[Rfam]
RNA sequence: CCUGUUCGGCACACGCCACAGGCAUGGAAUGUGGGCCCUCGAGGCCUGAACCAACGA
Numbered sequence: 001c002c003u004g005u006u007c008g009g010c011a012c013a014c015g016c017c018a019c020a021g022g023c024a025u026g027g028a029a030u031g032u033g034g035g036c037c038c039u040c041g042a043g044g045c046c047u048g049a050a051c052c053a054a055c056g057a
Stems, first nucleotide, its partner, number of pairs: 001022005025053003033047005

A member of the RNA family "eL15-Euryarchaeota ribosomal protein leader", 57 nucleotides long. On this family, see Eckert and Weinberg, BMC Microbiol 2020: "Discovery of 20 novel ribosomal leader candidates in bacteria and archaea". The base pairs follow the family's consensus structure, which is taken from published work.